[Rfam]
RNA sequence: AUUGGAGGACCAAGAAGGUUGAGUCUGAUGAAGCAAGACUUUGCUGAUACUCUCCUCCUAGACAAAUGGGUGGAGAGACCAGCCCUUAUCUGUGAAAACCACAGGGCCGACUCUACUGUCCAACAUUU
Numbered sequence: 001a002u003u004g005g006a007g008g009a010c011c012a013a014g015a016a017g018g019u020u021g022a023g024u025c026u027g028a029u030g031a032a033g034c035a036a037g038a039c040u041u042u043g044c045u046g047a048u049a050c051u052c053u054c055c056u057c058c059u060a061g062a063c064a065a066a067u068g069g070g071u072g073g074a075g076a077g078a079c080c081a082g083c084c085c086u087u088a089u090c091u092g093u094g095a096a097a098a099c100c101a102c103a104g105g106g107c108c109g110a111c112u113c114u115a116c117u118g119u120c121c122a123a124c125a126u127u128u
Stems, first nucleotide, its partner, number of pairs: 002061002004058006017045003021041006068121004078112001080109001082107005092099001
A member of the RNA family "Small Cajal body specific RNA 4" from Microtus ochrogaster, 128 nucleotides long. Gene Ontology terms of the family: RNA processing, Cajal body and nucleolus. The match comes from Rfam's covariance-model search (109 bits). From the family's description: scaRNAs are a specific class of small nuclear RNAs which localise to the Cajal bodies and guide the modification of RNA polymerase II transcribed spliceosomal RNAs U1, U2, U4, U5 and U12. ACA26 belongs to the H/ACA box class of guide RNAs as it has the predicted hairpin-hinge-hairpin-tail structure, conserved H/ACA-box motifs and is found associated with GAR1. By type it is a small Cajal body RNA.